[Rfam]
RNA sequence: CGGGCCGUCCAGUCCCAGGUGGCGUCGCGGUCGGUCAGGCAGCCGUCGCCGAAGUACGCGCCGUCGGCGAGGAAGCCGAGGACCGCCUCGUCCCCGUACGGGCCGGUGCCGACCUGCUCGACGCGGCCGUGCGCCAGCAGGAACACCCGGUCGGUGGGGGUGCCCGCCUCGGCGAUCACCUCACCCGCCGCGAACUCCCGCUGCGCGCACCGCUGGGCCAGCUCCGCGAGCGCCGCGUCGUCCUCGUACGAGCGCAGGGCCGGCAGCUCCCGCAGCUCGUUCGGGAUCACCGCGACCCGCGGGCCGGUCUGCACGAAUGUCACGCGCCCGUCGCCCACCGAGUAGCUGAGCCGCCGGUUCACCCGGUAGGUACCACCCUGCACCUGCACCCACGGAAGCAUCCGCAACAGCCACCGCGAGGUGAUCUCCUGCAUCUGCGGAACCGACUUGGUGGUGGUCGCCAGGUUCCGCGCGGCGGCGGUACCGAGACUCUGCUGCGGCGCCUCCU
Numbered sequence: 001c002g003g004g005c006c007g008u009c010c011a012g013u014c015c016c017a018g019g020u021g022g023c024g025u026c027g028c029g030g031u032c033g034g035u036c037a038g039g040c041a042g043c044c045g046u047c048g049c050c051g052a053a054g055u056a057c058g059c060g061c062c063g064u065c066g067g068c069g070a071g072g073a074a075g076c077c078g079a080g081g082a083c084c085g086c087c088u089c090g091u092c093c094c095c096g097u098a099c100g101g102g103c104c105g106g107u108g109c110c111g112a113c114c115u116g117c118u119c120g121a122c123g124c125g126g127c128c129g130u131g132c133g134c135c136a137g138c139a140g141g142a143a144c145a146c147c148c149g150g151u152c153g154g155u156g157g158g159g160g161u162g163c164c165c166g167c168c169u170c171g172g173c174g175a176u177c178a179c180c181u182c183a184c185c186c187g188c189c190g191c192g193a194a195c196u197c198c199c200g201c202u203g204c205g206c207g208c209a210c211c212g213c214u215g216g217g218c219c220a221g222c223u224c225c226g227c228g229a230g231c232g233c234c235g236c237g238u239c240g241u242c243c244u245c246g247u248a249c250g251a252g253c254g255c256a257g258g259g260c261c262g263g264c265a266g267c268u269c270c271c272g273c274a275g276c277u278c279g280u281u282c283g284g285g286a287u288c289a290c291c292g293c294g295a296c297c298c299g300c301g302g303g304c305c306g307g308u309c310u311g312c313a314c315g316a317a318u319g320u321c322a323c324g325c326g327c328c329c330g331u332c333g334c335c336c337a338c339c340g341a342g343u344a345g346c347u348g349a350g351c352c353g354c355c356g357g358u359u360c361a362c363c364c365g366g367u368a369g370g371u372a373c374c375a376c377c378c379u380g381c382a383c384c385u386g387c388a389c390c391c392a393c394g395g396a397a398g399c400a401u402c403c404g405c406a407a408c409a410g411c412c413a414c415c416g417c418g419a420g421g422u423g424a425u426c427u428c429c430u431g432c433a434u435c436u437g438c439g440g441a442a443c444c445g446a447c448u449u450g451g452u453g454g455u456g457g458u459c460g461c462c463a464g465g466u467u468c469c470g471c472g473c474g475g476c477g478g479c480g481g482u483a484c485c486g487a488g489a490c491u492c493u494g495c496u497g498c499g500g501c502g503c504c505u506c507c508u
Base pairs, nucleotide, nucleotide: 007389008388010386011385012384016380018328019327021325025322027320028319029318031316032315042308043307045304046302047301048300049299051297054233055232057230059228060227061226063224065111066110067109068108075103077102080099082097083096085094118221120219122217126213127212129210130209131206132205133204135203136202137201140198141197143196150191154189157186158185159184161178162177165174166173167172234294235293236292237291240290241289244286245285249283250282251281252280253279254278256277257276262269329342331340353377356374357373361371362370363369391431392430394428395427397425399423400422401421403418404417405416437476438475440473443470445468446467447465448464449463450462451461452460477507478506480504481503482502484500485499486498487496488495
RNA: Saccharopolyspora sRNA 350
Organism: Streptomyces lavendofoliae